[Rfam]
RNA sequence: GCUUCCUGCCUGUGAUGAAGCCUGUGUUGGUAGGGACAUCUGAGACUGUUGAUGAAUGCCAACGGCUCUGAUGGCGGCGC
Numbered sequence: 001g002c003u004u005c006c007u008g009c010c011u012g013u014g015a016u017g018a019a020g021c022c023u024g025u026g027u028u029g030g031u032a033g034g035g036a037c038a039u040c041u042g043a044g045a046c047u048g049u050u051g052a053u054g055a056a057u058g059c060c061a062a063c064g065g066c067u068c069u070g071a072u073g074g075c076g077g078c079g080c
Base pairs, nucleotide, nucleotide: 001080002079004077005076
Background
Shown here is an 80-nucleotide sequence from Canis lupus, a member of the family "Small nucleolar RNA SNORD74". Rfam links the family to the GO terms RNA processing and nucleolus. The literature on the family includes a 2002 paper in Mol Cell Biol by Galardi et al., "Purified box C/D snoRNPs are able to reproduce site-specific 2'-O-methylation of target RNA in vitro". The family's RNA type in Rfam is C/D-box small nucleolar RNA. The source organism's lineage runs through Eukaryota, Opisthokonta, Eumetazoa, Canidae and Canis lupus. Its Rfam clan is "SNORD74 clan".